The family of this 95-nucleotide RNA sequence from Gossypium stocksii is "Plastid-rps12 3UTR RNA". The family's RNA type in Rfam is cis-regulatory element. Rfam describes the family as follows. Plastid rpl20 is a non-coding RNA (ncRNA) recognised in plastids. For this family Rfam cites "Retrograde signaling in plants: A critical review focusing on the GUN pathway and beyond" (Richter et al., Plant Commun, 2023). It scores 80 bits against the family's covariance model. NCBI's taxonomy places the organism under Eukaryota, Magnoliopsida, rosids, malvids, Gossypium.
[Rfam]
RNA sequence: UGUUUCCAUUGGCGCAAAUCAAAUCUUGGCAUUUAAGAUGAGAAAAAGUUCCCAUUGGUAGCAAAUGCUUAACCAUUAAGCGGGGAAAAUCCUAU
Numbered sequence: 001u002g003u004u005u006c007c008a009u010u011g012g013c014g015c016a017a018a019u020c021a022a023a024u025c026u027u028g029g030c031a032u033u034u035a036a037g038a039u040g041a042g043a044a045a046a047a048g049u050u051c052c053c054a055u056u057g058g059u060a061g062c063a064a065a066u067g068c069u070u071a072a073c074c075a076u077u078a079a080g081c082g083g084g085g086a087a088a089a090u091c092c093u094a095u
Stems, first nucleotide, its partner, number of pairs: 009023002012020001050085004054076002057073001059071003